Annotation: The record is a 94-nucleotide RNA sequence from Caenorhabditis brenneri, which matches "mir-36 microRNA precursor family" in Rfam. Rfam 15.1 lists 199 matches to the family in 31 species. Its family is annotated with RISC complex and miRNA-mediated post-transcriptional gene silencing in the Gene Ontology. A search with the family's covariance model found it, with a score of 50 bits. A reference for the family is Kato et al. (2009), "Dynamic expression of small non-coding RNAs, including novel microRNAs and piRNAs/21U-RNAs, during Caenorhabditis elegans development", Genome Biol.
[Rfam]
RNA sequence: CCAGAGACGGGAACCGAGCUGAUUUCUCUACGGGUGAUAAUUCCAUCAAGUGCUUAUCACCGGGAGUAAAUCUGCUCUGGUCCCGUCUCGGGAC
Numbered sequence: 001c002c003a004g005a006g007a008c009g010g011g012a013a014c015c016g017a018g019c020u021g022a023u024u025u026c027u028c029u030a031c032g033g034g035u036g037a038u039a040a041u042u043c044c045a046u047c048a049a050g051u052g053c054u055u056a057u058c059a060c061c062g063g064g065a066g067u068a069a070a071u072c073u074g075c076u077c078u079g080g081u082c083c084c085g086u087c088u089c090g091g092g093a094c
Base pairs, nucleotide, nucleotide: 009084010083011082012081014079017076018075019074021072022071023070024069025068026066027065028064029063031062034060035059036058037057038056039055